Shown here is a 118-nucleotide sequence from Mycoplasmopsis phocirhinis, a member of the family "DUF3800-I RNA". It scores 68 bits against the family's covariance model. Actinobacteria, Firmicutes, Fusobacteria, Proteobacteria (1 example), Tenericutes (2 examples). The base pairs follow the family's consensus structure, which is taken from published work. Taxonomically the source falls in Mycoplasmopsis (Bacteria, Mycoplasmatota, Mycoplasmoidales, Metamycoplasmataceae).

[Rfam]
RNA sequence: UGUUGUUACAGGUUAUAAAGACACUGUGUACUAUAUUGAUAGAACAACCGUUUAAGCGCUAUGUGUUAGCGUCGACAAUGUAGGAAAGAUUGCUAAGAGCAGUCUUUUAUUUUUCUUU
Number, nucleotide and partner (000 for none) at each position: 001u000002g000003u000004u000005g000006u000007u028008a027009c026010a025011g024012g022013u021014u020015a000016u000017a000018a000019a000020g014021a013022c012023a000024c011025u010026g009027u008028g007029u000030a000031c083032u082033a081034u080035a079036u078037u000038g000039a000040u075041a000042g073043a052044a051045c050046a000047a000048c000049c000050g045051u044052u043053u000054a000055a000056g072057c071058g070059c069060u068061a067062u000063g000064u000065g000066u000067u061068a060069g059070c058071g057072u056073c042074g000075a040076c000077a000078a036079u035080g034081u033082a032083g031084g108085a107086a106087a105088g104089a103090u102091u101092g100093c099094u000095a000096a000097g000098a000099g093100c092101a091102g090103u089104c088105u087106u086107u085108u084109a000110u000111u000112u000113u000114u000115c000116u000117u000118u000